A member of the RNA family "L4-Archaeoglobi ribosomal protein leades" from Halorhabdus sp. CBA1104, 100 nucleotides long. It is annotated as a cis-regulatory leader.
[Rfam]
RNA sequence: CUGAUGGGCGCGUCCGGGUCAAUUGCGGCCUGCAACACCCGAUCUCUCUCCCCGUUCCGGACGACCGGAAUCUCAGGGAGGGAGAGCGUGUCACCGUCAG
Numbered sequence: 001c002u003g004a005u006g007g008g009c010g011c012g013u014c015c016g017g018g019u020c021a022a023u024u025g026c027g028g029c030c031u032g033c034a035a036c037a038c039c040c041g042a043u044c045u046c047u048c049u050c051c052c053c054g055u056u057c058c059g060g061a062c063g064a065c066c067g068g069a070a071u072c073u074c075a076g077g078g079a080g081g082g083a084g085a086g087c088g089u090g091u092c093a094c095c096g097u098c099a100g
Stems, first nucleotide, its partner, number of pairs: 001100005008091006015041004023035005043085010